[Rfam]
RNA sequence: AAGAUUGCAAUGAUGAUGCAAUUUUUCGUGGAUUAGAGUUUCUGAUCUGGGUUUUCCCAGUAGUUGAAGACUAACCCUUGGCUGUCUGAGUAACCUU
Numbered sequence: 001a002a003g004a005u006u007g008c009a010a011u012g013a014u015g016a017u018g019c020a021a022u023u024u025u026u027c028g029u030g031g032a033u034u035a036g037a038g039u040u041u042c043u044g045a046u047c048u049g050g051g052u053u054u055u056c057c058c059a060g061u062a063g064u065u066g067a068a069g070a071c072u073a074a075c076c077c078u079u080g081g082c083u084g085u086c087u088g089a090g091u092a093a094c095c096u097u
Stems, first nucleotide, its partner, number of pairs: 001097003005093004039069004046062001047060005
RNA: Small nucleolar RNA Z157/R69/R10
Organism: Gossypium schwendimanii